[Rfam]
RNA: Bacterial large subunit ribosomal RNA, nucleotides 1386 to 1658
Organism: Kumtagia ephedrae
RNA sequence: GUAAGGGGAGUGAGAGACUCCCCCGCCGAAAGACCAAGGGUUCCUGCUUAAAGUUAAUCUGAGCAGGGUUAGCCGGACCCUAAGACGAGGCCGAAAGGCGUAGUCGAUGGGAAUCACGUUAAUAUUCGUGAGCCUGCAGGUAGUGACGGAUCAUCAAUGUAGUUCGACCUUAUCGGAUUGGUCGGGCUGCUGCGUGGUUCCAGGAAAUAGCUCCUGCUUAUAGUCCGUACCCGAAACCGACACUGGUGGUCUGGUAGAGUAUACCAAGGCGCU
Numbered sequence: 001g002u003a004a005g006g007g008g009a010g011u012g013a014g015a016g017a018c019u020c021c022c023c024c025g026c027c028g029a030a031a032g033a034c035c036a037a038g039g040g041u042u043c044c045u046g047c048u049u050a051a052a053g054u055u056a057a058u059c060u061g062a063g064c065a066g067g068g069u070u071a072g073c074c075g076g077a078c079c080c081u082a083a084g085a086c087g088a089g090g091c092c093g094a095a096a097g098g099c100g101u102a103g104u105c106g107a108u109g110g111g112a113a114u115c116a117c118g119u120u121a122a123u124a125u126u127c128g129u130g131a132g133c134c135u136g137c138a139g140g141u142a143g144u145g146a147c148g149g150a151u152c153a154u155c156a157a158u159g160u161a162g163u164u165c166g167a168c169c170u171u172a173u174c175g176g177a178u179u180g181g182u183c184g185g186g187c188u189g190c191u192g193c194g195u196g197g198u199u200c201c202a203g204g205a206a207a208u209a210g211c212u213c214c215u216g217c218u219u220a221u222a223g224u225c226c227g228u229a230c231c232c233g234a235a236a237c238c239g240a241c242a243c244u245g246g247u248g249g250u251c252u253g254g255u256a257g258a259g260u261a262u263a264c265c266a267a268g269g270c271g272c273u
Base pairs, nucleotide, nucleotide: 005023006022007021008020009019010018024271025270026269027268032251033250034249035248038231039230043067044066045065046064047063048062052060053059074227075226076225077224079110080109084105085104086103088101090099091098092097114131115130116129117128118127134223136218139215140214142212143211144210148200149199150198151197159190160189161188162187164185165184166183167182168181169180237246238245253265254264255263256262